This 277-nucleotide RNA from Propithecus coquereli belongs to the Rfam family "Mason-Pfizer monkey virus packaging signal". Pairs were carried over by alignment from the consensus structure, which was predicted with PFOLD. It scores 206 bits against the family's covariance model. Rfam links the family to the GO term viral genome packaging. Lineage of the source: Eukaryota > Bilateria > Craniata > Primates > Propithecus.
[Rfam]
RNA sequence: UGGCGCCCAACGGGGGGCUCUGGAUACGAAGGGACUCGUGAGGACGAAGACACGGUUCGGCCGAAGACAGCAGUAGAAAGCGAAACUCCUUCGACCGCCGCGGGAGCCUGCCGCGCGGGAACGGAAGGUGAGUAAGUGCGUCUGAACAUGGGGCGGGAAUUGAGCCAGCACCAGCUUUAUGUUAAGCAGUUAAAGGAAGCUUUAAAGACACGAGGAGUAAAGGUUAAAGGACAUGAUUUGUUUAGAUUUUUUGACUUUAUACAGGAUAUCUGCCCUU
Numbered sequence: 001u002g003g004c005g006c007c008c009a010a011c012g013g014g015g016g017g018c019u020c021u022g023g024a025u026a027c028g029a030a031g032g033g034a035c036u037c038g039u040g041a042g043g044a045c046g047a048a049g050a051c052a053c054g055g056u057u058c059g060g061c062c063g064a065a066g067a068c069a070g071c072a073g074u075a076g077a078a079a080g081c082g083a084a085a086c087u088c089c090u091u092c093g094a095c096c097g098c099c100g101c102g103g104g105a106g107c108c109u110g111c112c113g114c115g116c117g118g119g120a121a122c123g124g125a126a127g128g129u130g131a132g133u134a135a136g137u138g139c140g141u142c143u144g145a146a147c148a149u150g151g152g153g154c155g156g157g158a159a160u161u162g163a164g165c166c167a168g169c170a171c172c173a174g175c176u177u178u179a180u181g182u183u184a185a186g187c188a189g190u191u192a193a194a195g196g197a198a199g200c201u202u203u204a205a206a207g208a209c210a211c212g213a214g215g216a217g218u219a220a221a222g223g224u225u226a227a228a229g230g231a232c233a234u235g236a237u238u239u240g241u242u243u244a245g246a247u248u249u250u251u252u253g254a255c256u257u258u259a260u261a262c263a264g265g266a267u268a269u270c271u272g273c274c275c276u277u
Base pairs, nucleotide, nucleotide: 006032007031012027014025036050037049039047087128095119096118099115100114101113102112103111137155138154139153141152142151143150144149161204162203163202164200165199211253212252213251214250215249216248217247218246221239222238223237224236225235226234263276264275265274267272

Overview
The family's RNA type in Rfam is cis-regulatory element.